[Rfam]
RNA sequence: ACAACAGCAGUGAUGGGGAAAAAGGCACCGCCGUAUCAGCUUCAGAGAGCAGGCAGGAAGGUGAAAGCCUGUGCGUGCGGCGGUGCGUAUCAGUCACCCCGGAGCUGGCAGCCCGAACUUUUACAGUAGGACUGCCCGCCUGCCGGCGUUAGCGGCAAAAGAGGGCUUUUAAAGCCAAACACGGGUGGUACCGCGGAAUUAUUCUGUAAAUUUCGCCCCGGGC
Numbered sequence: 001a002c003a004a005c006a007g008c009a010g011u012g013a014u015g016g017g018g019a020a021a022a023a024g025g026c027a028c029c030g031c032c033g034u035a036u037c038a039g040c041u042u043c044a045g046a047g048a049g050c051a052g053g054c055a056g057g058a059a060g061g062u063g064a065a066a067g068c069c070u071g072u073g074c075g076u077g078c079g080g081c082g083g084u085g086c087g088u089a090u091c092a093g094u095c096a097c098c099c100c101g102g103a104g105c106u107g108g109c110a111g112c113c114c115g116a117a118c119u120u121u122u123a124c125a126g127u128a129g130g131a132c133u134g135c136c137c138g139c140c141u142g143c144c145g146g147c148g149u150u151a152g153c154g155g156c157a158a159a160a161g162a163g164g165g166c167u168u169u170u171a172a173a174g175c176c177a178a179a180c181a182c183g184g185g186u187g188g189u190a191c192c193g194c195g196g197a198a199u200u201a202u203u204c205u206g207u208a209a210a211u212u213u214c215g216c217c218c219c220g221g222g223c
Stems, first nucleotide, its partner, number of pairs: 007105002015100004025086006039074002049072006108135004113130002137148003164176005182220004193216008
The record is a 223-nucleotide RNA sequence from Caproicibacterium amylolyticum, which matches "T-box leader" in Rfam. Lineage of the source: Bacteria > Clostridia > Eubacteriales > Oscillospiraceae > Caproicibacterium. It is annotated as a cis-regulatory leader.